A member of the RNA family "Archaeal large subunit ribosomal RNA" from candidate division MSBL1 archaeon SCGC-AAA382A20, 100 nucleotides of a longer RNA. It scores 2782 bits against the family's covariance model. Lineage of the source: Archaea > Methanobacteriati > Methanobacteriota > candidate division MSBL1. The literature on the family includes a 2002 paper in BMC Bioinformatics by Cannone et al., "The comparative RNA web (CRW) site: an online database of comparative sequence and structure information for ribosomal, intron, and other RNAs". The base pairs follow the family's consensus structure, which is taken from published work.

RNA sequence: GACAUGGCUCGAAAGGAAGGAAUCUUUCUGAAAGAACCCGUGGCGACGCGGUAGUAUGGGGAAAGAGGACCAAAGUCAUGUCUUCCGUUUGGAAAUACGG
Numbered sequence: 001g002a003c004a005u006g007g008c009u010c011g012a013a014a015g016g017a018a019g020g021a022a023u024c025u026u027u028c029u030g031a032a033a034g035a036a037c038c039c040g041u042g043g044c045g046a047c048g049c050g051g052u053a054g055u056a057u058g059g060g061g062a063a064a065g066a067g068g069a070c071c072a073a074a075g076u077c078a079u080g081u082c083u084u085c086c087g088u089u090u091g092g093a094a095a096u097a098c099g100g
Stems, first nucleotide, its partner, number of pairs: 001082009015071002023066007033057001038051005085100004